Notes
A member of the RNA family "mir-192/215 microRNA precursor family" from Muraenolepis orangiensis, 74 nucleotides long. The base pairs follow the family's consensus structure, which was predicted with PFOLD. This family represents the human microRNA (miRNA) precursors mir-192 and mir-215. Animal miRNAs are transcribed as ~70nt precursors and subsequently processed by the Dicer enzyme to give a ~22nt product. In this case the mature sequence comes from the 5' arm of the precursor. The extents of the hairpin precursors are not generally known and are estimated based on hairpin prediction. Rfam 15.1 lists 810 matches to the family in 628 species.
[Rfam]
RNA sequence: GCAGGGUGAUGACCUAUGAAUUGACAGCCAGUCACCAACAAGCUGCCUGUCAGUUUUAUAGGCCACUGCUGUGU
Numbered sequence: 001g002c003a004g005g006g007u008g009a010u011g012a013c014c015u016a017u018g019a020a021u022u023g024a025c026a027g028c029c030a031g032u033c034a035c036c037a038a039c040a041a042g043c044u045g046c047c048u049g050u051c052a053g054u055u056u057u058a059u060a061g062g063c064c065a066c067u068g069c070u071g072u073g074u
Base pairs, nucleotide, nucleotide: 001074002073003072005070006069007068008067010065011064013062014061015060016059018056019055020054021053022052023051024050025049026048027047029045030044031043